[Rfam]
Nucleotides: 116
Base pairs, nucleotide, nucleotide: 002072003071004070005069006068007067008066009065010064011063012062013061016059017058019056020055021054022053023052026048027047029045031043032042099112101110102109
Number, partner (000 for none) and nucleotide at each position: 001000u002072g003071a004070g005069a006068a007067u008066g009065c010064c011063u012062u013061c014000c015000g016059g017058u018000a019056c020055u021054g022053g023052g024000g025000u026048u027047u028000c029045a030000a031043g032042a033000c034000u035000u036000c037000g038000a039000c040000a041000a042032u043031c044000c045029u046000g047027a048026a049000u050000g051000u052023c053022c054021u055020a056019g057000g058017a059016c060000a061013g062012a063011a064010g065009g066008c067007a068006u069005u070004u071003u072002c073000g074000c075000u076000g077000u078000u079000c080000a081000c082000a083000c084000g085000c086000c087000g088000a089000u090000c091000a092000g093000c094000c095000a096000c097000u098000c099112a100000c101110c102109c103000a104000u105000c106000c107000a108000c109102g110101g111000a112099u113000u114000c115000a116000g

Actinobacteria sRNA Ms_IGR-7: a 116-nucleotide RNA sequence from Mycolicibacterium doricum. Pairs were carried over by alignment from the consensus structure. It scores 47 bits against the family's covariance model. A reference for the family is Li et al. (2013), "Identification of small RNAs in Mycobacterium smegmatis using heterologous Hfq", RNA. The family has 14 seed sequences and 463 matches in Rfam 15.1. It is annotated as a small RNA.